[Rfam]
About this RNA: This 454-nucleotide RNA from Molossus molossus belongs to the Rfam family "FGF-2 internal ribosome entry site (IRES)". A reference for the family is Creancier et al. (2000), "Fibroblast growth factor 2 internal ribosome entry site (IRES) activity ex vivo and in transgenic mice reveals a stringent tissue-specific regulation", J Cell Biol. From the family's description: This family represents the fibroblast growth factor 2 (FGF-2) internal ribosome entry site (IRES). When expressed the FGF-2 protein plays a pivotal role in cell proliferation, differentiation and survival as well as being involved in wound-healing. It has been found that FGF-2 IRES activity is strictly controlled and highly tissue specific. It is thought that translational IRES dependent activation of FGF-2 plays a vital role in embryogenesis and in the adult brain. A search with the family's covariance model found it, with a score of 122 bits. Rfam 15.1 lists 95 matches to the family in 84 species.

RNA sequence: CUGCGGCCGAGCGCCCGGCCCAGGAGCCGGCGCGGGCAGGGGGCGGCGCGCCGGGAGGGCGGGGAGCGGCGCGUGGGGGCGGUGGGUGUCGGGUGGAGAUGUAGAUGUGACGCCGCGGCCCCGCCGUGCCAGAGCGGCAGACGCCGUGCUCGUGGCUGCGGGAGGGUCCGGGCCCGUCCCGAGGGUGGCGGCCGCGGAGACUGCGAGCCCCAAACCCCCGCCCCGCGGCCGGCCGGCUCCCCGCGCGCCUGGGCCGGCGGACAGGGCAGGGCCGAGCGGCGCGAGGCUGGGGACUCGCGGGCGCGGCCGCGCGCCGCCGGGCGGGAAGCUGGGGGGCCGCGGCCGGGGCCGGGCCUCGGAGCGGGUCGGAGGCCGGGGCCGGGGCCGAGGGGCAGCGGGUCCCCGCGCGGCGCCAGGGGCGCCGGGACCCCGGCGAGGCCCCGGUGGGGCCAUG
Number, nucleotide and partner (000 for none) at each position: 001c000002u000003g000004c000005g000006g000007c000008c000009g000010a000011g000012c000013g000014c000015c000016c339017g338018g337019c336020c335021c334022a000023g000024g000025a000026g000027c324028c323029g322030g000031c000032g000033c000034g000035g000036g000037c000038a000039g000040g000041g000042g318043g317044c316045g315046g314047c313048g312049c311050g310051c309052c000053g000054g000055g000056a000057g000058g000059g000060c000061g000062g000063g000064g000065a000066g000067c220068g219069g218070c000071g216072c000073g000074u212075g211076g210077g209078g000079g000080c000081g000082g000083u000084g000085g000086g000087u206088g201089u000090c000091g000092g000093g000094u000095g000096g000097a000098g000099a000100u000101g000102u000103a000104g000105a000106u000107g000108u000109g000110a000111c000112g000113c000114c000115g000116c000117g000118g000119c165120c164121c000122c000123g153124c152125c000126g149127u148128g147129c146130c000131a000132g000133a000134g000135c000136g000137g000138c000139a000140g000141a000142c000143g000144c000145c000146g129147u128148g127149c126150u000151c000152g124153u123154g000155g000156c000157u000158g000159c000160g000161g000162g000163a000164g120165g119166g000167u000168c000169c000170g000171g193172g192173c191174c190175c000176g000177u000178c000179c000180c000181g000182a000183g000184g000185g000186u000187g000188g000189c000190g174191g173192c172193c171194g000195c000196g000197g000198a000199g000200a000201c088202u000203g000204c000205g000206a087207g000208c000209c077210c076211c075212a074213a000214a000215c000216c071217c000218c069219c068220g067221c000222c000223c000224c000225g000226c283227g282228g280229c279230c278231g000232g258233c257234c256235g255236g254237c253238u000239c000240c000241c000242c000243g000244c000245g000246c000247g000248c000249c000250u000251g000252g000253g237254c236255c235256g234257g233258c232259g000260g000261a000262c000263a000264g000265g000266g000267c000268a000269g000270g000271g000272c000273c000274g000275a000276g000277c000278g230279g229280c228281g000282c227283g226284a000285g000286g000287c000288u000289g000290g000291g000292g000293a000294c000295u000296c000297g000298c000299g000300g000301g000302c000303g000304c000305g000306g000307c000308c000309g051310c050311g049312c048313g047314c046315c045316g044317c043318c042319g000320g000321g000322c029323g028324g027325g000326a000327a000328g000329c000330u000331g000332g000333g000334g021335g020336g019337c018338c017339g016340c000341g000342g000343c000344c000345g000346g000347g000348g000349c000350c000351g000352g000353g000354c000355c365356u364357c363358g362359g000360a000361g000362c358363g357364g356365g355366u000367c000368g000369g000370a000371g000372g000373c000374c000375g442376g441377g440378g439379c438380c437381g000382g000383g000384g000385c000386c000387g000388a000389g000390g000391g000392g000393c000394a000395g000396c000397g000398g000399g000400u000401c000402c000403c000404c000405g422406c421407g420408c419409g000410g000411c000412g000413c000414c000415a000416g000417g000418g000419g408420c407421g406422c405423c000424g430425g429426g000427a000428c000429c425430c424431c000432g000433g000434c000435g000436a000437g380438g379439c378440c377441c376442c375443g000444g000445u000446g000447g000448g000449g000450c000451c000452a000453u000454g000